[Rfam]
RNA: Actinobacteria sRNA Ms_IGR-5
Organism: Phycicoccus sp. Root563
RNA sequence: ACACGGAAGGGAGGUGGUCCAGGAAUUGAUUUCAUAUUGGACGCGUGAGGUGACUGCGCGCUAGGUGCGCAACGUCGACUGCUUCGACGGCGCAUCCUGCGCAAUCCCAAGCAGUUCACCGCAGCCCGCGGGCCGUGCAGGUCGUCCCCUGCACAUGUCGAGCCGCUCGAAUUCGGCGAGGCGAGGCCCGCGGGCUGUUCCAU
Number, nucleotide and partner (000 for none) at each position: 001a000002c000003a000004c000005g000006g000007a000008a000009g000010g000011g000012a000013g000014g057015u056016g055017g054018u053019c000020c000021a000022g000023g000024a000025a000026u000027u000028g000029a000030u000031u000032u000033c000034a000035u000036a000037u000038u000039g000040g000041a000042c000043g000044c000045g000046u000047g000048a000049g000050g000051u000052g000053a018054c017055u016056g015057c014058g000059c101060g100061c099062u000063a000064g096065g095066u000067g093068c092069g091070c090071a000072a000073c000074g000075u000076c000077g000078a000079c000080u000081g000082c000083u000084u000085c000086g000087a000088c000089g000090g070091c069092g068093c067094a000095u065096c064097c000098u000099g061100c060101g059102c000103a000104a000105u000106c000107c000108c000109a000110a000111g000112c000113a000114g000115u000116u000117c000118a000119c000120c000121g000122c197123a196124g195125c194126c193127c192128g191129c190130g189131g188132g187133c186134c185135g000136u153137g152138c151139a150140g149141g148142u000143c000144g000145u000146c000147c000148c141149c140150u139151g138152c137153a136154c000155a000156u000157g000158u000159c000160g000161a000162g000163c000164c000165g000166c000167u000168c000169g000170a000171a000172u000173u000174c000175g000176g000177c000178g000179a000180g000181g000182c000183g000184a000185g134186g133187c132188c131189c130190g129191c128192g127193g126194g125195c124196u123197g122198u000199u000200c000201c000202a000203u000